[Rfam]
About this RNA
A member of the RNA family "glmS glucosamine-6-phosphate activated ribozyme aptamer" from Psychrilyobacter sp. S5, 182 nucleotides long.
RNA sequence: UAAAAAAAAUAAGCGCCUGAACUUCUGAAUGAAUUCUCAACCUUGAAUAAGGUGUGAAAUCAGAAGUUGACGAGGGCUAGGGAAAAUCGAAAAUCGGCGGGUACCCUAGAGGUUGUCACAACCUAAAGAAGGAACAAAAAUAAUCGGUGACGAUUAUUACAAAAAUCUUCUAGUGGCUAUUU
Numbered sequence: 001u002a003a004a005a006a007a008a009a010u011a012a013g014c015g016c017c018u019g020a021a022c023u024u025c026u027g028a029a030u031g032a033a034u035u036c037u038c039a040a041c042c043u044u045g046a047a048u049a050a051g052g053u054g055u056g057a058a059a060u061c062a063g064a065a066g067u068u069g070a071c072g073a074g075g076g077c078u079a080g081g082g083a084a085a086a087u088c089g090a091a092a093a094u095c096g097g098c099g100g101g102u103a104c105c106c107u108a109g110a111g112g113u114u115g116u117c118a119c120a121a122c123c124u125a126a127a128g129a130a131g132g133a134a135c136a137a138a139a140a141u142a143a144u145c146g147g148u149g150a151c152g153a154u155u156a157u158u159a160c161a162a163a164a165a166u167c168u169u170c171u172a173g174u175g176g177c178u179a180u181u182u
Stems, first nucleotide, its partner, number of pairs: 020068008029060001077109005087097004110124006128170005140157007